[Rfam]
RNA: Streptomyces sRNA 4677
Organism: Streptomyces tubercidicus
RNA sequence: CGUCGGCGUGGCGGGCGGUCAAGAACAAAGAACCCGGGGAGAGAACCUUCCAAACCCACCAAACCCCGCGUACGUCACCCGUGGGGGUGAAUCGCCUCAACUCGGCUGGCGCGCGGCCGACUUGGGCGGGCAGUCUCGGGCCUGACAACCGCAGACAUGCGACGGCCCCCGCCGGGACGGCAAUCCCGGUGCGAGGGCCUGACCACGCAAGGAAGCACAACCUUCCCG
Numbered sequence: 001c002g003u004c005g006g007c008g009u010g011g012c013g014g015g016c017g018g019u020c021a022a023g024a025a026c027a028a029a030g031a032a033c034c035c036g037g038g039g040a041g042a043g044a045a046c047c048u049u050c051c052a053a054a055c056c057c058a059c060c061a062a063a064c065c066c067c068g069c070g071u072a073c074g075u076c077a078c079c080c081g082u083g084g085g086g087g088u089g090a091a092u093c094g095c096c097u098c099a100a101c102u103c104g105g106c107u108g109g110c111g112c113g114c115g116g117c118c119g120a121c122u123u124g125g126g127c128g129g130g131c132a133g134u135c136u137c138g139g140g141c142c143u144g145a146c147a148a149c150c151g152c153a154g155a156c157a158u159g160c161g162a163c164g165g166c167c168c169c170c171g172c173c174g175g176g177a178c179g180g181c182a183a184u185c186c187c188g189g190u191g192c193g194a195g196g197g198c199c200u201g202a203c204c205a206c207g208c209a210a211g212g213a214a215g216c217a218c219a220a221c222c223u224u225c226c227c228g
Stems, first nucleotide, its partner, number of pairs: 005208001006206001008204001015069003075090006106139004164199005170193003174187004211226005